The family of this 80-nucleotide sequence is "let-7 microRNA precursor family". Its Rfam clan is "let-7 microRNA precursor clan". Rfam's curators write: This family represents the microRNAs (miRNA) let-7 and mir-98. let-7 was identified from a study of developmental timing in C. elegans, and was later shown to be part of a much larger class of non-coding RNAs termed miRNAs. On this family, see Rougvie, Nat Rev Genet 2001: "Control of developmental timing in animals". The base pairs follow the family's consensus structure, which was predicted with RNAalifold.

RNA sequence: GCAGGCUGAGGUAGUUGGUUGUAUGGUUUUGCAUCAUAAUCAGCCUGGAGUUAACUGUACAACCUUCUAGCUUUCCCUGC
Numbered sequence: 001g002c003a004g005g006c007u008g009a010g011g012u013a014g015u016u017g018g019u020u021g022u023a024u025g026g027u028u029u030u031g032c033a034u035c036a037u038a039a040u041c042a043g044c045c046u047g048g049a050g051u052u053a054a055c056u057g058u059a060c061a062a063c064c065u066u067c068u069a070g071c072u073u074u075c076c077c078u079g080c
Base pairs, nucleotide, nucleotide: 001080002079003078004077005076008073009072010071012069013068014067017064018063019062020061021060022059023058024057025056026055027054035043